[Rfam]
RNA sequence: UCCUCGCUCAAAGAAUCGCAUUCAAAGCUCACACACAAAGAAGAUUCUUCUUCUUUCACGCACUCGCUUUGGGAGAAAGUCCCCGGACACCCUGCGCUCUUUCCAGAGUUCUUCAAGCCAGGCAAUGCGGAAACGCGCCGCCAUAGAAGCAAUUCGAUAGUGGCUUACGCCCUAUUCCCACCGGUUCUUGUGCUCGCCGUCCGACAGUGUCCCACUGGUUACAAUGGGGCGUGCGGCCUGGGGCUGGAGGGGAGAAGGGGGGACUUCGGUCUUCUCUUGUAUUGGGUUGCCUUUCGUCGUGGUUCGAUAGUCAUGCGAUUGCCCCCUUGUUCCUCGUGGACGGGGGGUAACUCAAUGGGGCUCAUUCUUGAGGCGAGG
Number, nucleotide and partner (000 for none) at each position: 001u000002c378003c377004u376005c375006g374007c373008u371009c370010a369011a368012a000013g000014a320015a319016u318017c317018g316019c315020a000021u000022u073023c071024a070025a069026a068027g067028c066029u000030c000031a000032c000033a000034c000035a000036c000037a000038a052039a051040g050041a049042a048043g047044a000045u000046u000047c043048u042049u041050c040051u039052u038053c000054u000055u000056u000057c000058a000059c000060g000061c000062a000063c000064u000065c000066g028067c027068u026069u025070u024071g023072g000073g022074a000075g000076a000077a000078a362079g361080u000081c360082c359083c358084c357085g000086g000087a000088c000089a000090c000091c000092c000093u000094g000095c000096g000097c000098u000099c000100u000101u000102u000103c000104c000105a000106g000107a000108g000109u000110u000111c000112u000113u000114c000115a000116a000117g000118c000119c000120a000121g000122g000123c000124a000125a000126u000127g000128c000129g000130g000131a000132a000133a000134c000135g000136c000137g000138c000139c000140g000141c000142c000143a000144u000145a000146g000147a000148a000149g000150c000151a000152a000153u000154u000155c000156g000157a000158u000159a000160g000161u000162g000163g000164c000165u000166u000167a000168c000169g000170c000171c000172c000173u000174a000175u000176u000177c000178c000179c000180a000181c000182c000183g000184g000185u000186u000187c000188u000189u000190g000191u000192g000193c000194u000195c000196g000197c000198c000199g000200u000201c000202c000203g000204a000205c000206a000207g000208u223209g222210u221211c000212c000213c000214a000215c000216u000217g000218g000219u000220u000221a210222c209223a208224a000225u000226g000227g000228g291229g290230c289231g000232u000233g000234c000235g000236g000237c286238c285239u284240g283241g282242g000243g280244c279245u000246g277247g274248a273249g272250g271251g000252g000253a000254g000255a000256a000257g267258g266259g265260g264261g000262g000263a000264c260265u259266u258267c257268g000269g000270u000271c250272u249273u248274c247275u000276c000277u246278u000279g244280u243281a000282u241283u240284g239285g238286g237287u000288u000289g230290c229291c228292u000293u000294u000295c000296g000297u000298c000299g000300u000301g000302g000303u000304u000305c000306g000307a000308u000309a000310g000311u000312c000313a000314u000315g019316c018317g017318a016319u015320u014321g000322c347323c346324c345325c344326c343327u342328u000329g000330u000331u000332c000333c000334u000335c000336g000337u000338g000339g000340a000341c000342g327343g326344g325345g324346g323347g322348u000349a000350a000351c000352u000353c000354a000355a000356u000357g084358g083359g082360g081361c079362u078363c000364a000365u000366u000367c000368u011369u010370g009371a008372g000373g007374c006375g005376a004377g003378g002